The family of this 62-nucleotide sequence from Pedobacter hartonius is "Fluoride riboswitch aptamer (crcB RNA motif)". Pairs were carried over by alignment from the consensus structure, which is taken from published work. It scores 47 bits against the family's covariance model. The source organism's lineage runs through Bacteria, Pseudomonadati, Bacteroidota, Sphingobacteriia and Pedobacter.
RNA sequence: UUUUGAAGAGGAAAUGGUGUCUUCCUUUAAAAAACCGCAUUGCUGAUGACGCCUGCAAUUAA
Numbered sequence: 001u002u003u004u005g006a007a008g009a010g011g012a013a014a015u016g017g018u019g020u021c022u023u024c025c026u027u028u029a030a031a032a033a034a035c036c037g038c039a040u041u042g043c044u045g046a047u048g049a050c051g052c053c054u055g056c057a058a059u060u061a062a
Base pairs, nucleotide, nucleotide: 010025011024012023013022016053017052018051019050020049021048037043038042